Shown here is an 87-nucleotide RNA from Saccharothrix sp. ALI-22-I, a member of the family "ZMP/ZTP riboswitch aptamer (pfl RNA motif)". It scores 49 bits against the family's covariance model. The family has 185 seed sequences and 3,295 matches in Rfam 15.1. The base pairs follow the family's consensus structure, which is taken from published work. Gene Ontology terms of the family: one-carbon metabolic process and regulation of purine nucleotide biosynthetic process. The source organism's lineage runs through Bacteria, Actinomycetota, Pseudonocardiales, Pseudonocardiaceae and Saccharothrix.
RNA sequence: CCGGGUGUUCGCGACUGGCGUGUCGAGGGUGGGAACGACCACCGGGGAGCGUUGAGCCGGAUCGCACCGCGCGCCUGGGUGCUACGG
Numbered sequence: 001c002c003g004g005g006u007g008u009u010c011g012c013g014a015c016u017g018g019c020g021u022g023u024c025g026a027g028g029g030u031g032g033g034a035a036c037g038a039c040c041a042c043c044g045g046g047g048a049g050c051g052u053u054g055a056g057c058c059g060g061a062u063c064g065c066a067c068c069g070c071g072c073g074c075c076u077g078g079g080u081g082c083u084a085c086g087g
Base pairs, nucleotide, nucleotide: 003058004057006055010051011050012049015046016045017075018074019073020072021071029042030041031040032039064082065081066080067079068078